[Rfam]
The family of this 64-nucleotide RNA from Sulfobacillus acidophilus is "DUF3800-IX RNA". It is one of the family's seed sequences. Rfam classes the family as a small RNA. Actinobacteria, Firmicutes (1 example), Nitrospirae, Proteobacteria, Verrucomicrobia (1 example).
RNA sequence: GGCCUCGGAGCGAAUAGUCACCCUGUGCGUGUGCGUGGCGUCAAGCCUAGUUCCGAGGCCGAAU
Numbered sequence: 001g002g003c004c005u006c007g008g009a010g011c012g013a014a015u016a017g018u019c020a021c022c023c024u025g026u027g028c029g030u031g032u033g034c035g036u037g038g039c040g041u042c043a044a045g046c047c048u049a050g051u052u053c054c055g056a057g058g059c060c061g062a063a064u
Base pairs, nucleotide, nucleotide: 001060002059003058004057005056006055007054008053009052010051011050017034018033019031020030021029037047038046039045